[Rfam]
A member of the RNA family "CyaR/Rye RNA" from Prodigiosinella confusarubida, 86 nucleotides long. About the family: This sRNA was originally identified in a large scale screen of E. coli. It was shown to bind Hfq and called RyeE. This sRNA has since been characterised as a post-transcriptional regulator of the 18 kDa OmpX porin in Salmonella. Phylogenetic and mutational analyses suggest that a conserved RNA hairpin of this sRNA which features a C-rich apical loop, acts to sequester the Shine-Dalgarno sequence of ompX mRNA and inhibits translational initiation. The expression of this sRNA has been shown to be tightly controlled by the cyclic AMP receptor protein, CRP and has been renamed CyaR (cyclic AMP-activated RNA).
RNA sequence: AAAAUACAGAACGAAAAAUAAGCGUAGUAAAUACUACUAGGAACCACCUCCUUGGCCAGCUCAAUCUCCCUUGAGCUGGCUUUUCU
Numbered sequence: 001a002a003a004a005u006a007c008a009g010a011a012c013g014a015a016a017a018a019u020a021a022g023c024g025u026a027g028u029a030a031a032u033a034c035u036a037c038u039a040g041g042a043a044c045c046a047c048c049u050c051c052u053u054g055g056c057c058a059g060c061u062c063a064a065u066c067u068c069c070c071u072u073g074a075g076c077u078g079g080c081u082u083u084u085c086u
Stems, first nucleotide, its partner, number of pairs: 039052004054081011